[Rfam]
Background: The record is a 132-nucleotide RNA sequence from Channa argus, which matches "Small nucleolar RNA SNORA13" in Rfam. Its family is annotated with RNA processing and nucleolus in the Gene Ontology. The base pairs follow the family's consensus structure, which was predicted with CMfinder. The match comes from Rfam's covariance-model search (59 bits). ACA13 is a member of the H/ACA class of snoRNA that guide the sites of modification of uridines to pseudouridines. The family has 50 seed sequences and 1,034 matches in Rfam 15.1.
RNA sequence: UGCCUUUAUGUGUUGCCCUUUCAUUGUUUCCUUAGUGAUUGGGGUGUCAAGUAAGGCAUAUAGUAACAGUUGUGGGUGUCUGUGAAAUGAGCUUCAAGUGACUCCUUUUUGCAAACAACUGCAAGGACAACA
Numbered sequence: 001u002g003c004c005u006u007u008a009u010g011u012g013u014u015g016c017c018c019u020u021u022c023a024u025u026g027u028u029u030c031c032u033u034a035g036u037g038a039u040u041g042g043g044g045u046g047u048c049a050a051g052u053a054a055g056g057c058a059u060a061u062a063g064u065a066a067c068a069g070u071u072g073u074g075g076g077u078g079u080c081u082g083u084g085a086a087a088u089g090a091g092c093u094u095c096a097a098g099u100g101a102c103u104c105c106u107u108u109u110u111g112c113a114a115a116c117a118a119c120u121g122c123a124a125g126g127a128c129a130a131c132a
Base pairs, nucleotide, nucleotide: 002057003056004055005054006053011049012048014046015045016044017043018041021038022037023036024035025034070124071123072122075119077117078116079115081113082112083111084110085109086107087106091102